[Rfam]
RNA sequence: UUUGAUAAAGGCAAACUUGCCGAAAGGUAAGGGCGCAAAGCCACGGGUCUAAGGUGCUAGCUAUGACGGCCGGGUUGCCAAUG
Dot-bracket structure: (.((......((...((((((....))))))..[))..((((.((((((...............))).])))))))..))..)
A member of the RNA family "c-di-GMP-I-GGC riboswitch aptamer" from Paenibacillus sp. PvR098, 83 nucleotides long. Gene Ontology term of the family: cyclic-di-GMP binding. Rfam 15.1 lists 1,298 matches to the family in 717 species.